[Rfam]
RNA sequence: CAAGGGGCACCGAAAACCUUUAACAGAGUAGGAU
Numbered sequence: 001c002a003a004g005g006g007g008c009a010c011c012g013a014a015a016a017c018c019u020u021u022a023a024c025a026g027a028g029u030a031g032g033a034u
Base pairs, nucleotide, nucleotide: 002020003019004018005017010032011031
RNA: DUF805b RNA
Organism: Confluentibacter flavum